A member of the RNA family "t44 RNA" from Pseudomonas oryzihabitans, 91 nucleotides long.
Rfam describes the family as follows. This family consists of a number of bacterial RNA genes of between 135 and 170 bases in length.
The organism belongs to Pseudomonas, within Bacteria.
The match comes from Rfam's covariance-model search (78 bits).
Rfam classes the family as a small RNA.
Pairs were carried over by alignment from the consensus structure, which was predicted with LocARNA.
RNA sequence: CUUUAGCGCUCCUAACCCCACACACGCAUCGACACGAUGACCUGGGUGCUUCCCAAGGGAAGUUGGUCAUUGGGAUGCGUGGAGGCCCAAC
Numbered sequence: 001c002u003u004u005a006g007c008g009c010u011c012c013u014a015a016c017c018c019c020a021c022a023c024a025c026g027c028a029u030c031g032a033c034a035c036g037a038u039g040a041c042c043u044g045g046g047u048g049c050u051u052c053c054c055a056a057g058g059g060a061a062g063u064u065g066g067u068c069a070u071u072g073g074g075a076u077g078c079g080u081g082g083a084g085g086c087c088c089a090a091c
Stems, first nucleotide, its partner, number of pairs: 023081008035072008048063005